[Rfam]
RNA: Small Cajal body-specific RNA 7
RNA sequence: UGGAAGUGAUGAAAUGGAGAUAGUUGGAUGUCUGUUUGAAUGGAGUGUGUGUGAUAAAUGGAAUUUAAACCAAGUCAGACUGGGGGUGGGAUGUGGGGAAUGUGUGUGUAUGUGCAUGUGUGUAUGGGAAGGGCUUUAAAUGGGGGCACUAAUAAUGCAGUGCUGAUUCCGGAGUGCAUCUGAGGCAUGUUGUUAAGUUCUGGGCUGCCCUUUACAACAUUGCCAAUGAUUAAAGCCCAAAACAAGCCCACCAAGACAAGCCUAGGCAUCAUAAAUCUCUAACAGGUUCAUUAAUGAAAGUGAUCCUGUGAUCUGAUCCGA
Numbered sequence: 001u002g003g004a005a006g007u008g009a010u011g012a013a014a015u016g017g018a019g020a021u022a023g024u025u026g027g028a029u030g031u032c033u034g035u036u037u038g039a040a041u042g043g044a045g046u047g048u049g050u051g052u053g054a055u056a057a058a059u060g061g062a063a064u065u066u067a068a069a070c071c072a073a074g075u076c077a078g079a080c081u082g083g084g085g086g087u088g089g090g091a092u093g094u095g096g097g098g099a100a101u102g103u104g105u106g107u108g109u110a111u112g113u114g115c116a117u118g119u120g121u122g123u124a125u126g127g128g129a130a131g132g133g134c135u136u137u138a139a140a141u142g143g144g145g146g147c148a149c150u151a152a153u154a155a156u157g158c159a160g161u162g163c164u165g166a167u168u169c170c171g172g173a174g175u176g177c178a179u180c181u182g183a184g185g186c187a188u189g190u191u192g193u194u195a196a197g198u199u200c201u202g203g204g205c206u207g208c209c210c211u212u213u214a215c216a217a218c219a220u221u222g223c224c225a226a227u228g229a230u231u232a233a234a235g236c237c238c239a240a241a242a243c244a245a246g247c248c249c250a251c252c253a254a255g256a257c258a259a260g261c262c263u264a265g266g267c268a269u270c271a272u273a274a275a276u277c278u279c280u281a282a283c284a285g286g287u288u289c290a291u292u293a294a295u296g297a298a299a300g301u302g303a304u305c306c307u308g309u310g311a312u313c314u315g316a317u318c319c320g321a
Base pairs, nucleotide, nucleotide: 001320002319003318004317188219189218190217191216192215193214195212197209199207